[Rfam]
RNA sequence: GACAUUAACCCAGCUGUUCUUUUUUGACUUCUUUUUCUCAUUCUUUUCUCUGCCAUAUUAGAGAGAGGCUCAAUCGUUUAAGAACAAUAAGUCAAAAACGAGCAGGAAGCCUCCCAUAACGGGGGGCUUUUUUAU
Dot-bracket structure: ...............((((.((((((((((.((..(((...((((((.............)))))).((......))...)))..)).)))))))))).))))..((((((((((.....)))))))))).....

The record is a 135-nucleotide RNA from Vibrio sp. 10N.286.49.B3, which matches "Phenylalanine leader peptide" in Rfam. A search with the family's covariance model found it, with a score of 66 bits. Rfam 15.1 lists 379 matches to the family in 290 species. Its family is annotated with cellular amino acid metabolic process in the Gene Ontology. The family's RNA type in Rfam is cis-regulatory leader.